[Rfam]
The family of this 178-nucleotide RNA from Pelecanoides urinatrix is "Small Cajal body specific RNA 16". By type it is a small Cajal body RNA. A search with the family's covariance model found it, with a score of 114 bits. Lineage of the source: Eukaryota > Sauria > Archelosauria > Dinosauria > Pelecanoides.
RNA sequence: CGGGGCUGGGGAAGGGCUGCUGGGUGGUGGGGCCAGUGGCCCAGCCGCGUGCCAGCCAGCCUCACCCGCGCCCCAGAUCAACUCCCGGGGGGCUCCGAGCUGGGGCUCGCCCUGUGCAGUAGCAGGUGUGAGCAUUCAUGCAGCGUUUUGGUGGUCAUGUAUGAUACUGCACACAGCG
Numbered sequence: 001c002g003g004g005g006c007u008g009g010g011g012a013a014g015g016g017c018u019g020c021u022g023g024g025u026g027g028u029g030g031g032g033c034c035a036g037u038g039g040c041c042c043a044g045c046c047g048c049g050u051g052c053c054a055g056c057c058a059g060c061c062u063c064a065c066c067c068g069c070g071c072c073c074c075a076g077a078u079c080a081a082c083u084c085c086c087g088g089g090g091g092g093c094u095c096c097g098a099g100c101u102g103g104g105g106c107u108c109g110c111c112c113u114g115u116g117c118a119g120u121a122g123c124a125g126g127u128g129u130g131a132g133c134a135u136u137c138a139u140g141c142a143g144c145g146u147u148u149u150g151g152u153g154g155u156c157a158u159g160u161a162u163g164a165u166a167c168u169g170c171a172c173a174c175a176g177c178g
Stems, first nucleotide, its partner, number of pairs: 003073004008067003015061004019056004024052002026046003030042001032040003084105003087101002113173009123163002129157003133153004140147001